Shown here is a 102-nucleotide RNA sequence from Anaerococcus nagyae, a member of the family "TPP riboswitch aptamer (THI element)".
A search with the family's covariance model found it, with a score of 65 bits.
Rfam describes the family as follows. Vitamin B(1) in its active form thiamin pyrophosphate (TPP) is an essential coenzyme that is synthesised by coupling of pyrimidine and thiazole moieties in bacteria.
Taxonomically the source falls in Anaerococcus (Bacteria, Bacillati, Tissierellia, Tissierellales).

RNA sequence: AAUAAAUCGCAGGGGGACUUUACUAUAAAAGUUGAGAAGGUAAAACCUGACCCUUAGAACCUGUUAGUUAAUACUAGCGUAGGGAGCAAAAAGAUGUAGUAC
Numbered sequence: 001a002a003u004a005a006a007u008c009g010c011a012g013g014g015g016g017a018c019u020u021u022a023c024u025a026u027a028a029a030a031g032u033u034g035a036g037a038a039g040g041u042a043a044a045a046c047c048u049g050a051c052c053c054u055u056a057g058a059a060c061c062u063g064u065u066a067g068u069u070a071a072u073a074c075u076a077g078c079g080u081a082g083g084g085a086g087c088a089a090a091a092a093g094a095u096g097u098a099g100u101a102c
Stems, first nucleotide, its partner, number of pairs: 007089001009087002011054004016048001017032005039047003060083004064077004